[Rfam]
RNA sequence: GGCUGAUCUGAGUGCAGUGGUGUUUACAACUAAUUGAUCACAACCAGUUACAGAUUUCUUUGUUCCUUCUCCACUCCCACUGCUUUGCUUGAUUAGAAAA
Numbered sequence: 001g002g003c004u005g006a007u008c009u010g011a012g013u014g015c016a017g018u019g020g021u022g023u024u025u026a027c028a029a030c031u032a033a034u035u036g037a038u039c040a041c042a043a044c045c046a047g048u049u050a051c052a053g054a055u056u057u058c059u060u061u062g063u064u065c066c067u068u069c070u071c072c073a074c075u076c077c078c079a080c081u082g083c084u085u086u087g088c089u090u091g092a093u094u095a096g097a098a099a100a
Stems, first nucleotide, its partner, number of pairs: 003096006010090002014086001016081005022076001028064003032060002
The family of this 100-nucleotide RNA from Carlito syrichta is "Y RNA". The family has 104 seed sequences and 26,986 matches in Rfam 15.1. The base pairs follow the family's consensus structure, which is taken from published work. The match comes from Rfam's covariance-model search (60 bits). The family's RNA type in Rfam is non-coding RNA gene. Taxonomically the source falls in Carlito (Eukaryota, Teleostomi, Dipnotetrapodomorpha, Mammalia). The literature on the family includes a 2000 paper in Nucleic Acids Res by Teunissen et al., "Conserved features of Y RNAs: a comparison of experimentally derived secondary structures".